[Rfam]
RNA sequence: UGGUGUUUUUCCCGAAUGACACGUUUUCUCCCGGAUUGCUCGUAAUGGUGAACGCAACCGGGAAUUUCGUGUCAGCCAAGAAAUACACCU
Numbered sequence: 001u002g003g004u005g006u007u008u009u010u011c012c013c014g015a016a017u018g019a020c021a022c023g024u025u026u027u028c029u030c031c032c033g034g035a036u037u038g039c040u041c042g043u044a045a046u047g048g049u050g051a052a053c054g055c056a057a058c059c060g061g062g063a064a065u066u067u068c069g070u071g072u073c074a075g076c077c078a079a080g081a082a083a084u085a086c087a088c089c090u
Stems, first nucleotide, its partner, number of pairs: 002089005008083004017074007029063006036057004042053002

The family of this 90-nucleotide RNA sequence from Nothobranchius furzeri is "mir-731 microRNA precursor family". The source organism's lineage runs through Eukaryota, Bilateria, Chordata, Cyprinodontiformes and Nothobranchius. Gene Ontology terms of the family: miRNA-mediated post-transcriptional gene silencing and RISC complex.